A member of the RNA family "MIR2593 microRNA precursor family" from Trifolium medium, 117 nucleotides long.
The match comes from Rfam's covariance-model search (109 bits).
The family has 7 seed sequences and 1,262 matches in Rfam 15.1.
Pairs were carried over by alignment from the consensus structure, which was predicted with RNAalifold.
RNA sequence: AUAUAAGAGACACUUCACCUUUCUAGAUUCAUUGAAUAAUUAAUGUAUUUGGUCUAUAUUAUAGACCAAAUAUAUUAAUUAUUCAAUGAAUCUAGAAAGGUGAAGUGUCUCUUAUAU
Numbered sequence: 001a002u003a004u005a006a007g008a009g010a011c012a013c014u015u016c017a018c019c020u021u022u023c024u025a026g027a028u029u030c031a032u033u034g035a036a037u038a039a040u041u042a043a044u045g046u047a048u049u050u051g052g053u054c055u056a057u058a059u060u061a062u063a064g065a066c067c068a069a070a071u072a073u074a075u076u077a078a079u080u081a082u083u084c085a086a087u088g089a090a091u092c093u094a095g096a097a098a099g100g101u102g103a104a105g106u107g108u109c110u111c112u113u114a115u116a117u
Base pairs, nucleotide, nucleotide: 002116003115004114005113006112007111009109010108011107012106013105015103016102017101019099020098021097022096023095024094025093026092028090029089030088031087032086033085034084035083036082037081038080039079040078041077042076043075044074045073050068051067052066053065